Rfam assigns this 59-nucleotide RNA sequence from Bos taurus to the family "U7 small nuclear RNA".
The family's consensus secondary structure was predicted with PFOLD.
Rfam describes the family as follows. Animal histone pre-mRNAs are spliced by a different mechanism than nuclear pre-mRNAs and self-splicing introns. This processing involves the U7 snRNP, which contains only one RNA species: U7.
Lineage of the source: Eukaryota > Eumetazoa > Sarcopterygii > Bovinae > Bos.

[Rfam]
RNA sequence: AAAUACUGGAUCUAUUUAAAUUUGUGUUGCAGGUAUUCUGGCUUACCCAGAAUGCCAUU
Numbered sequence: 001a002a003a004u005a006c007u008g009g010a011u012c013u014a015u016u017u018a019a020a021u022u023u024g025u026g027u028u029g030c031a032g033g034u035a036u037u038c039u040g041g042c043u044u045a046c047c048c049a050g051a052a053u054g055c056c057a058u059u
Stems, first nucleotide, its partner, number of pairs: 032056010